[Rfam]
RNA sequence: ACCGGGAGCGUGGCGUCUCCUGUAAUCUAGCUACAUAGAGGUCGGAACUGGUGGAUGGUUUGAGGUAAGGGAACCUGCUAAUAAGUGGCCUAUGUUGACUAGACGUCCACACUAAGCCAGGUAUUAAUAUGGACCUCUCCGAGGAUUCUGAGAGAUCCAGGUUCACUAAGGAGGGUCGCAUCGGGCCAGGGGGGGUGACCCAGCAGCCAAAAGACCCCGUUUCAGGCAAUAGUGGGACCGCGGCCAGGAGUGGGGUGCUUAGUAACAGCCUGAUCAAUACAGCCAGACCCGUUCCUU
Numbered sequence: 001a002c003c004g005g006g007a008g009c010g011u012g013g014c015g016u017c018u019c020c021u022g023u024a025a026u027c028u029a030g031c032u033a034c035a036u037a038g039a040g041g042u043c044g045g046a047a048c049u050g051g052u053g054g055a056u057g058g059u060u061u062g063a064g065g066u067a068a069g070g071g072a073a074c075c076u077g078c079u080a081a082u083a084a085g086u087g088g089c090c091u092a093u094g095u096u097g098a099c100u101a102g103a104c105g106u107c108c109a110c111a112c113u114a115a116g117c118c119a120g121g122u123a124u125u126a127a128u129a130u131g132g133a134c135c136u137c138u139c140c141g142a143g144g145a146u147u148c149u150g151a152g153a154g155a156u157c158c159a160g161g162u163u164c165a166c167u168a169a170g171g172a173g174g175g176u177c178g179c180a181u182c183g184g185g186c187c188a189g190g191g192g193g194g195g196u197g198a199c200c201c202a203g204c205a206g207c208c209a210a211a212a213g214a215c216c217c218c219g220u221u222u223c224a225g226g227c228a229a230u231a232g233u234g235g236g237a238c239c240g241c242g243g244c245c246a247g248g249a250g251u252g253g254g255g256u257g258c259u260u261a262g263u264a265a266c267a268g269c270c271u272g273a274u275c276a277a278u279a280c281a282g283c284c285a286g287a288c289c290c291g292u293u294c295c296u297u
Stems, first nucleotide, its partner, number of pairs: 001042003004021005026039003044295005050289002056285005064275003068271003075268003079264002082261006089254005095248001099247002102244001104242003107236002110234005116227003120223002123220002126163003130159004135154005141148002166170001173217005184208003191201003
A member of the RNA family "Metazoan signal recognition particle RNA" from Pararge aegeria, 297 nucleotides long. The match comes from Rfam's covariance-model search (196 bits). For this family Rfam cites "Towards the structure of the mammalian signal recognition particle" (Wild et al., Curr Opin Struct Biol, 2002). The source organism's lineage runs through Eukaryota, Metazoa, Panorpida, Satyrinae and Pararge aegeria. The family's consensus secondary structure is taken from published work. From the family's description: The signal recognition particle (SRP) is a universally conserved ribonucleoprotein. It is involved in the co-translational targeting of proteins to membranes. The eukaryotic SRP consists of a 300-nucleotide 7S RNA and six proteins: SRPs 72, 68, 54, 19, 14, and 9. Archaeal SRP consists of a 7S RNA and homologues of the eukaryotic SRP19 and SRP54 proteins. Eukaryotic and archaeal 7S RNAs have very similar secondary structures, as represented by this family. Eight helical elements fold into the Alu and S domains, separated by a long linker region. The Alu domain is thought to mediate the peptide chain elongation retardation function of the SRP. The universally conserved helix which interacts with the SRP54 M domain mediates signal sequence recognition. In eukaryotes and archaea, the SRP19-helix 6 complex is thought to be involved in SRP assembly and stabilises helix 8 for SRP54 binding. The Signal Recognition Particle Database (SRPDB) provides compilations of SRP components, with phylogenetic data and structural illustrations. Many sequences below the threshold for this family are clearly closely related, but are most likely to be SRP RNA derived pseudogenes. The human genome in particular is known to contain a large amount of SRP RNA related sequence, including Alu repeats. While the threshold of this family is set high so as to minimise the number of hits to such regions, it is likely that some remain. Rfam links the family to the GO terms SRP-dependent cotranslational protein targeting to membrane, signal sequence recognition and signal recognition particle, endoplasmic reticulum targeting. The family's RNA type in Rfam is non-coding RNA gene.